Rfam assigns this 140-nucleotide sequence from Anisodus acutangulus to the family "MIR7993 microRNA precursor family". Rfam links the family to the GO terms RISC complex and miRNA-mediated post-transcriptional gene silencing.
[Rfam]
Nucleotides: 140
Stems, first nucleotide, its partner, number of pairs: 001138004006133020028111010039100004044095003050089005
Number, partner (000 for none) and nucleotide at each position: 001138u002137u003136a004135g005000u006133u007132u008131a009130a010129u011128c012127a013126c014125a015124u016123a017122a018121a019120a020119u021118a022117u023116g024115u025114c026000a027000u028111c029110u030109c031108c032107u033106u034105u035104a036103a037102u038000u039100a040099u041098a042097c043000g044095c045094a046093u047000c048000a049000a050089c051088u052087u053086c054085a055000a056000u057000a058000g059000a060000a061000a062000a063000u064000g065000c066000a067000u068000g069000g070000a071000g072000u073000u074000u075000u076000a077000c078000u079000a080000c081000u082000u083000a084000u085054u086053g087052a088051g089050g090000c091000u092000a093046a094045u095044g096000a097042g098041u099040a100039u101000u102037a103036u104035u105034a106033a107032a108031g109030g110029a111028g112000a113000u114025g115024a116023c117022a118021u119020a120019u121018u122017u123016u124015a125014u126013g127012u128011g129010g130009u131008u132007a133006a134000c135004u136003u137002a138001a139000c140000u